[Rfam]
RNA sequence: ACUGUGGAGGGUACAAGAACUUGUGAGUAGCGUGUUGCUUGCGACCGCCAAAGCAUACACAUUGAAGCAGUAA
Numbered sequence: 001a002c003u004g005u006g007g008a009g010g011g012u013a014c015a016a017g018a019a020c021u022u023g024u025g026a027g028u029a030g031c032g033u034g035u036u037g038c039u040u041g042c043g044a045c046c047g048c049c050a051a052a053g054c055a056u057a058c059a060c061a062u063u064g065a066a067g068c069a070g071u072a073a
Stems, first nucleotide, its partner, number of pairs: 001071005009060001011058003022055003030048003033043002
RNA: RAGATH-18 RNA